About this RNA
Rfam assigns this 64-nucleotide sequence from Pocillopora damicornis to the family "Selenocysteine insertion sequence 1". It is annotated as a cis-regulatory element. The incorporation of selenocysteine into a protein sequence is directed by an in-frame UGA codon (usually a stop codon) within the coding region of the mRNA. Selenoprotein mRNAs contain a conserved secondary structure in the 3' UTR that is required for the distinction of UGA stop from UGA selenocysteine. The selenocysteine insertion sequence (SECIS) is around 60 nt in length and adopts a hairpin structure which is sufficiently well-defined and conserved to act as a computational screen for selenoprotein genes.
RNA sequence: CUGUUUUCAUGAUGACUUUACAGUAAACUAGAUACGAGUUUGUAAAGUUGGAGGCUUUGAACAG
Numbered sequence: 001c002u003g004u005u006u007u008c009a010u011g012a013u014g015a016c017u018u019u020a021c022a023g024u025a026a027a028c029u030a031g032a033u034a035c036g037a038g039u040u041u042g043u044a045a046a047g048u049u050g051g052a053g054g055c056u057u058u059g060a061a062c063a064g
Base pairs, nucleotide, nucleotide: 001064002063003062004061005060014049015048016047017046018045019044020043021042022041023040028038029037